[Rfam]
RNA: Nitrogen stress-induced RNA 1
RNA sequence: UGGUAGAUGCACCCUGGUUAAGCCCUAGAGAAUACUCUGGGGCAUUUUUUU
Dot-bracket structure: .(((......)))........(((((((((....)))))))))........
Numbered sequence: 001u002g003g004u005a006g007a008u009g010c011a012c013c014c015u016g017g018u019u020a021a022g023c024c025c026u027a028g029a030g031a032a033u034a035c036u037c038u039g040g041g042g043c044a045u046u047u048u049u050u051u
Stems, first nucleotide, its partner, number of pairs: 002013003022043009